Group II catalytic intron D1-D4-5: a 186-nucleotide RNA sequence from Mesobacillus boroniphilus. Rfam describes the family as follows. Group II introns are found in rRNA, tRNA and mRNA of organelles in fungi, plants and protists, and also in mRNA in bacteria. A reference for the family is Bonen and Vogel (2001), "The ins and outs of group II introns", Trends Genet. The pairing is the family consensus, mapped onto this sequence. Lineage of the source: Bacteria > Caryophanales > Bacillaceae > Mesobacillus > Mesobacillus boroniphilus. Rfam 15.1 lists 720 matches to the family in 418 species.

[Rfam]
RNA sequence: CCUAACUUUAUAACCGAGGAUAGGAAUGAUAAAACCACGUAUUUUGAAACUAUCCCAUUGAUACUCCUGCAUGCGCCAUAAUAGACAGAUUAUGGGGUCUGGAGCACAGGUGAAGUCGGCAGAACAAAGGCUGAAGCCAUUCUUUUCGGAAAAGGUAUGCUAAUGGAUAUGCCGGAUGGCUGAAAA
Numbered sequence: 001c002c003u004a005a006c007u008u009u010a011u012a013a014c015c016g017a018g019g020a021u022a023g024g025a026a027u028g029a030u031a032a033a034a035c036c037a038c039g040u041a042u043u044u045u046g047a048a049a050c051u052a053u054c055c056c057a058u059u060g061a062u063a064c065u066c067c068u069g070c071a072u073g074c075g076c077c078a079u080a081a082u083a084g085a086c087a088g089a090u091u092a093u094g095g096g097g098u099c100u101g102g103a104g105c106a107c108a109g110g111u112g113a114a115g116u117c118g119g120c121a122g123a124a125c126a127a128a129g130g131c132u133g134a135a136g137c138c139a140u141u142c143u144u145u146u147c148g149g150a151a152a153a154g155g156u157a158u159g160c161u162a163a164u165g166g167a168u169a170u171g172c173c174g175g176a177u178g179g180c181u182g183a184a185a186a
Base pairs, nucleotide, nucleotide: 018055019054020053021052022051023050031045032044033043034042056178057177058176059175066110067109068108069107070101071100073098074097076095077094078093079092080091081090082089117174118173119172120171121170125165126164129161130160131149132148133147139145
Dot-bracket structure: .................((((((.......((((.......))))....))))))((((......((((((.((.(((((((......))))))).)).)).....))))......(((((...((..(((((.....(.....).)))..........))..))....)))))))))........